RNA sequence: CAAUAACGAUGAUGGUCAAAGCUCAUGGGAAUUGUAAGUCUUUUUGGCUUACAGCUUUCUCAGGUUU
Numbered sequence: 001c002a003a004u005a006a007c008g009a010u011g012a013u014g015g016u017c018a019a020a021g022c023u024c025a026u027g028g029g030a031a032u033u034g035u036a037a038g039u040c041u042u043u044u045u046g047g048c049u050u051a052c053a054g055c056u057u058u059c060u061c062a063g064g065u066u067u
Stems, first nucleotide, its partner, number of pairs: 019067005033053006
The family of this 67-nucleotide RNA sequence from Streptococcus equi is "Streptococcus sRNA Spd-sr37". It is annotated as a small RNA. It is one of the family's seed sequences.